[Rfam]
Notes:
This 126-nucleotide sequence from Aotus nancymaae belongs to the Rfam family "U4atac minor spliceosomal RNA". It is annotated as a spliceosomal small nuclear RNA. Rfam links the family to the GO terms spliceosomal tri-snRNP complex assembly, pre-mRNA 5'-splice site binding and mRNA 5'-splice site recognition. The organism belongs to Aotus, within Eukaryota. Rfam's curators write: U4atac is an essential component of the minor U12-type spliceosome complex which is required for removal of the rarer class of eukaryotic introns (AT-AC, U12-type). For this family Rfam cites "Evolutionary conservation of minor U12-type spliceosome between plants and humans" (Lorkovic et al., RNA, 2005).
RNA sequence: UGGAUCCUUUUCUUGGAGUUGCGCUACUGUCCAAUGAGCGCAUAGUGAGGACAGUACUGCUAACGCCUAAACAACACACUCGCAUCAACCUAAAUUUUGCUUUACGUUGGUGCAAUUUUUGGAAAC
Numbered sequence: 001u002g003g004a005u006c007c008u009u010u011u012c013u014u015g016g017a018g019u020u021g022c023g024c025u026a027c028u029g030u031c032c033a034a035u036g037a038g039c040g041c042a043u044a045g046u047g048a049g050g051a052c053a054g055u056a057c058u059g060c061u062a063a064c065g066c067c068u069a070a071a072c073a074a075c076a077c078a079c080u081c082g083c084a085u086c087a088a089c090c091u092a093a094a095u096u097u098u099g100c101u102u103u104a105c106g107u108u109g110g111u112g113c114a115a116u117u118u119u120u121g122g123a124a125a126c
Stems, first nucleotide, its partner, number of pairs: 006018001008016002021060003026055007038046002082113006092102002095099001